RNA sequence: CCAACGGCCUUUCUAAAGGCCACCACAAUUUACAAAGAGCCCUAAU
Numbered sequence: 001c002c003a004a005c006g007g008c009c010u011u012u013c014u015a016a017a018g019g020c021c022a023c024c025a026c027a028a029u030u031u032a033c034a035a036a037g038a039g040c041c042c043u044a045a046u
Stems, first nucleotide, its partner, number of pairs: 006021006
Dot-bracket structure: .....((((((....)))))).........................